[Rfam]
The record is a 115-nucleotide RNA sequence from Yinghuangia soli, which matches "Guanidine-I riboswitch aptamer" in Rfam. The organism belongs to Yinghuangia, within Bacteria. The pairing is the family consensus, mapped onto this sequence. Rfam 15.1 lists 1,509 matches to the family in 1,281 species.
RNA sequence: GCGGGGCGCGGCUAGGGUUCCGCCGCUCGGCACCGGAAGGUGCCGGCGGGUCUGGUCCGAGAGCCGCAGGCGGGGCCCAGGCCCCGUUCCACGGCGGGAGAAAAGCCCGGGAGGC
Numbered sequence: 001g002c003g004g005g006g007c008g009c010g011g012c013u014a015g016g017g018u019u020c021c022g023c024c025g026c027u028c029g030g031c032a033c034c035g036g037a038a039g040g041u042g043c044c045g046g047c048g049g050g051u052c053u054g055g056u057c058c059g060a061g062a063g064c065c066g067c068a069g070g071c072g073g074g075g076c077c078c079a080g081g082c083c084c085c086g087u088u089c090c091a092c093g094g095c096g097g098g099a100g101a102a103a104a105g106c107c108c109g110g111g112a113g114g115c
Stems, first nucleotide, its partner, number of pairs: 008067005015058002020055002022052001023049005069088008090110001092113001096108003